[Rfam]
RNA sequence: UAGACCAUGAAUUGAUGUGAAUGGGUCCAUGCCUUUAGCUGGGCUCAGGAAAGUCCCCGAGCCUUCUCUGCAGAAAUGUAGGCCUGGUAACGGGUAAAUCUUCGAGCUUGGGCUUGCUUCAUACUUUGGUGUGAGGGCUGAGACACGUGUGUGGAGCCUUUGCAAGUCCUGCCGAAGAAAUUUGGCUAAUUGUUACAGUCAUUCACAUGGUUGUUCGCAACUUACAGAACGGGGCUUAUGUCUUCGUGGUCU
Dot-bracket structure: .((((((((((...((((((.(((((((............)))))))...[[[.[[[[..........((((....))))......................(((((....)))))..(.....((((((....((((......((....))...))))...........))))))..).......................)))))).((((....)))).........]]]]]]].....))))))))))
About this RNA
RNase MRP: a 252-nucleotide sequence from Cicer arietinum. Pairs were carried over by alignment from the consensus structure, which is taken from published work. Rfam 15.1 lists 3,510 matches to the family in 2,315 species. The family's RNA type in Rfam is ribozyme.